[Rfam]
RNA sequence: GGAAGGGAAUCGUCCCUGGUGGGGCGGACGGACUUCAAAUCCGGAAACGGUCGGUCGCCGGCUGUUGGUGGGUUCGACUCCCACUCCCUUCC
Numbered sequence: 001g002g003a004a005g006g007g008a009a010u011c012g013u014c015c016c017u018g019g020u021g022g023g024g025c026g027g028a029c030g031g032a033c034u035u036c037a038a039a040u041c042c043g044g045a046a047a048c049g050g051u052c053g054g055u056c057g058c059c060g061g062c063u064g065u066u067g068g069u070g071g072g073u074u075c076g077a078c079u080c081c082c083a084c085u086c087c088c089u090u091c092c
Stems, first nucleotide, its partner, number of pairs: 001092008011026006029043004047065005069083004
RNA: Selenocysteine transfer RNA
Organism: Magnetospirillum moscoviense